[Rfam]
RNA: Bacterial large subunit ribosomal RNA, nucleotides 850 to 1287
Nucleotides: 438
Stems, first nucleotide, its partner, number of pairs: 001378006011024005026130001027128007036121001038117008051104001052102002058098002062094004069087002071084004134159010164175003179353004184349003190343003199340001201339006220315002224312008233303001241299005247272003252266003273277001278293001282291002354368005379433001381430006388423003397417008
Number, partner (000 for none) and nucleotide at each position: 001378c002377u003376c004375c005374c006373c007000g008000a009000a010000a011024u012023g013022c014021a015020u016000u017000u018000a019000g020015g021014u022013g023012c024011a025000g026130c027128c028127u029126u030125u031124g032123a033122u034000g035000u036121u037000u038117c039116u040115u041114g042113u043112a044111u045110g046000a047000g048000g049000u050000a051104g052102a053101g054000c055000g056000a057000c058098u059097g060000a061000u062094u063093g064092g065091a066000u067000g068000c069087g070086a071084g072083g073082c074081u075000u076000u077000c078000a079000c080000c081074g082073g083072c084071u085000a086070u087069c088000a089000a090000g091065u092064c093063c094062a095000g096000a097059c098058a099000a100000a101053c102052u103000c104051c105000g106000a107000a108000u109000g110045c111044a112043u113042a114041u115040a116039a117038g118000u119000a120000u121036a122033g123032u124031c125030a126029g127028g128027g129000a130026g131000u132000g133000a134159g135158g136157g137156c138155a139154u140153g141152g142151g143150u144000g145000c146000u147000a148000a149000g150143g151142u152141c153140c154139a155138u156137g157136u158135c159134c160000g161000a162000g163000a164175g165174g166173a167000g168000a169000a170000g171000a172000a173166u174165c175164c176000g177000g178000a179353c180352c181351a182350u183000c184349g185348g186347c187000u188000a189000a190343g191342g192341u193000c194000c195000c196000g197000a198000a199340a200000u201339a202338a203337c204336a205335g206334c207000u208000a209000a210000g211000u212000u213000g214000a215000c216000c217000a218000a219000a220315c221314g222000a223000a224312g225311u226310c227309a228308a229307g230306a231305u232000g233303c234000a235000g236000a237000g238000a239000c240000a241299g242298c243297u244296a245295g246000g247272a248271u249270g250000u251000u252266g253265g254264c255000u256000u257000g258000g259000a260000a261000g262000c263000a264254g265253c266252c267000a268000u269000u270249c271248a272247u273277u274000u275000a276000a277273a278293g279000a280000g281000u282291g283290c284000g285000u286000a287000a288000c289000a290283g291282c292000u293278c294000a295245c296244u297243a298242g299241u300000c301000g302000a303233g304000g305231a306230u307229u308228u309227u310226g311225g312224c313000a314221u315220g316000g317000a318000u319000a320000a321000u322000a323000c324000u325000c326000g327000g328000g329000c330000a331000u332000a333000a334206g335205c336204u337203g338202u339201u340199u341192a342191c343190c344000g345000a346000a347186g348185c349184u350182g351181u352180g353179g354368g355367a356366u357365a358364c359000g360000u361000a362000u363000a364358g365357u366356a367355u368354c369000g370000g371000u372000a373006g374005g375004g376003g377002a378001g379433c380000a381430u382429u383428c384427c385426a386425g387000c388423g389422a390421c391000g392000u393000a394000g395000a396000a397417g398416a399415u400414u401413g402412a403411a404410g405000g406000a407000c408000g409000a410404c411403u412402u413401c414400a415399g416398u417397u418000g419000g420000a421390g422389u423388u424000u425386c426385u427384g428383g429382a430381a431000a432000c433379g434000c435000a436000a437000a438000u